The family of this 80-nucleotide sequence from Candidatus Galacturonatibacter soehngenii is "ZMP/ZTP riboswitch aptamer (pfl RNA motif)". Pairs were carried over by alignment from the consensus structure, which is taken from published work. NCBI's taxonomy places the organism under Bacteria, Bacillati, Bacillota, Clostridia, Candidatus Galacturonatibacter.
RNA sequence: CAUAAGCUGUAUGACUGGCGGAAAGUGAGAGCACUCACAGGGAGUACAGCAAACAAAUGCCGACCGCCUGGGCAACCUAC
Numbered sequence: 001c002a003u004a005a006g007c008u009g010u011a012u013g014a015c016u017g018g019c020g021g022a023a024a025g026u027g028a029g030a031g032c033a034c035u036c037a038c039a040g041g042g043a044g045u046a047c048a049g050c051a052a053a054c055a056a057a058u059g060c061c062g063a064c065c066g067c068c069u070g071g072g073c074a075a076c077c078u079a080c
Stems, first nucleotide, its partner, number of pairs: 003053001006050007015041002017068005026037004058074004